RNA: SAH (S-adenosyl-L-homocysteine) riboswitch aptamer
RNA sequence: CAUUCCGAGGAGCGUUGCAACCUCAGCUCCAUGAGGCCAGGCUCGGAAGCCCCGACACGAUCGGGCCCACUGCAACCGCGCUCACCCGCA
Number, nucleotide and partner (000 for none) at each position: 001c000002a000003u048004u047005c046006c045007g044008a043009g000010g000011a000012g000013c000014g000015u000016u000017g000018c000019a000020a000021c036022c035023u034024c033025a032026g000027c000028u000029c000030c000031a000032u025033g024034a023035g022036g021037c000038c000039a000040g000041g000042c000043u008044c007045g006046g005047a004048a003049g000050c000051c000052c000053c000054g000055a000056c000057a000058c000059g000060a000061u000062c000063g000064g000065g000066c000067c000068c000069a000070c000071u000072g000073c000074a000075a000076c000077c000078g000079c000080g000081c000082u000083c000084a000085c000086c000087c000088g000089c000090a000